[Rfam]
RNA sequence: UUGAAGAAUGAUUAGAUAACUCAUAUAACCUUGAUAAUGGGAUCAAGGGUUUCUACGAGGCAACCGUAAAUUGCUUCUCUAUGAGCCAAGGCUGGUUGAUA
Numbered sequence: 001u002u003g004a005a006g007a008a009u010g011a012u013u014a015g016a017u018a019a020c021u022c023a024u025a026u027a028a029c030c031u032u033g034a035u036a037a038u039g040g041g042a043u044c045a046a047g048g049g050u051u052u053c054u055a056c057g058a059g060g061c062a063a064c065c066g067u068a069a070a071u072u073g074c075u076u077c078u079c080u081a082u083g084a085g086c087c088a089a090g091g092c093u094g095g096u097u098g099a100u101a
Stems, first nucleotide, its partner, number of pairs: 020085006029048007057077007